[Rfam]
The family of this 143-nucleotide RNA from Brochothrix thermosphacta is "FMN riboswitch aptamer (RFN element)". NCBI's taxonomy places the organism under Bacteria, Bacillati, Bacillota, Listeriaceae, Brochothrix. The RFN element is a highly conserved domain that is found frequently in the 5'-untranslated regions of prokaryotic mRNAs that encode for flavin mononucleotide (FMN) biosynthesis and transport proteins.
RNA sequence: AUGAUUCUUCGGGGCAGGGUGUAAUUCCCGACCGGCGGUGACAAAAAUAUUAUUUUUGAAGUCCGUGAACCAUAAUUUCGAUUGUGGUUGAUUCAGUGAAAAUCUGAAACCGACAGUUAAAGUCUGGAUGGGAGAAGUAAUCA
Numbered sequence: 001a002u003g004a005u006u007c008u009u010c011g012g013g014g015c016a017g018g019g020u021g022u023a024a025u026u027c028c029c030g031a032c033c034g035g036c037g038g039u040g041a042c043a044a045a046a047a048u049a050u051u052a053u054u055u056u057u058g059a060a061g062u063c064c065g066u067g068a069a070c071c072a073u074a075a076u077u078u079c080g081a082u083u084g085u086g087g088u089u090g091a092u093u094c095a096g097u098g099a100a101a102a103u104c105u106g107a108a109a110c111c112g113a114c115a116g117u118u119a120a121a122g123u124c125u126g127g128a129u130g131g132g133a134g135a136a137g138u139a140a141u142c143a
Stems, first nucleotide, its partner, number of pairs: 003141001005139001007137004017029003031123002033112002035066004061110002069088003092108005114126003